SAM riboswitch aptamer (S box leader): a 117-nucleotide RNA from Aneurinibacillus sp. XH2. Pairs were carried over by alignment from the consensus structure, which is taken from published work.
[Rfam]
Nucleotides: 117
Stems, first nucleotide, its partner, number of pairs: 001117008013041001015040003021031003025088004042080004047076002049072002084109001089106006
Number, partner (000 for none) and nucleotide at each position: 001117u002116u003115c004114u005113u006112a007111u008110c009000a010000a011000g012000a013041g014000a015040g016039g017038c018000g019000g020000a021031g022030g023029g024000a025088c026087u027086g028085g029023c030022c031021c032000a033000g034000u035000g036000a037000a038017g039016c040015c041013c042080g043079g044078c045077a046000a047076c048075c049072c050071c051000a052000a053000u054000g055000a056000c057000c058000c059000u060000a061000u062000u063000c064000g065000a066000g067000g068000g069000a070000a071050g072049g073000a074000a075048g076047g077045u078044g079043c080042c081000a082000a083000u084109u085028c086027c087026a088025g089106c090105a091104g092103g093102a094101u095000a096000c097000a098000c099000a100000u101094a102093u103092c104091c105090u106089g107000a108000g109084a110008g111007a112006u113005a114004a115003g116002g117001a
The match comes from Rfam's covariance-model search (93 bits). Lineage of the source: Bacteria > Bacillati > Caryophanales > Paenibacillaceae > Aneurinibacillus.